[Rfam]
RNA sequence: GCGGGCGCCAUUGCGGGCCCGCCGUGAGGGCGUCCAGCACGCCUCUUCAUGCCCAUGUUGCUUGCCACUAUGAGGAUAUGGCUAUGAGGA
Numbered sequence: 001g002c003g004g005g006c007g008c009c010a011u012u013g014c015g016g017g018c019c020c021g022c023c024g025u026g027a028g029g030g031c032g033u034c035c036a037g038c039a040c041g042c043c044u045c046u047u048c049a050u051g052c053c054c055a056u057g058u059u060g061c062u063u064g065c066c067a068c069u070a071u072g073a074g075g076a077u078a079u080g081g082c083u084a085u086g087a088g089g090a
Stems, first nucleotide, its partner, number of pairs: 001022006008016002028044006046088006053081007061074003
RNA: Repression of heat shock gene expression (ROSE) element